RNA sequence: UGGGUACACUUAGAGCCCAGUUUGGAGGCAGUGUUAAUAGUCGAGCGUUUGGCCGCGCCGAUGGUUAGUGAAUC
Numbered sequence: 001u002g003g004g005u006a007c008a009c010u011u012a013g014a015g016c017c018c019a020g021u022u023u024g025g026a027g028g029c030a031g032u033g034u035u036a037a038u039a040g041u042c043g044a045g046c047g048u049u050u051g052g053c054c055g056c057g058c059c060g061a062u063g064g065u066u067a068g069u070g071a072a073u074c
Stems, first nucleotide, its partner, number of pairs: 001019005034068005040062004045058004
The family of this 74-nucleotide sequence is "L13-Bacteroidia ribosomal protein leader". It is annotated as a cis-regulatory leader. For this family Rfam cites "Discovery of 20 novel ribosomal leader candidates in bacteria and archaea" (Eckert and Weinberg, BMC Microbiol, 2020).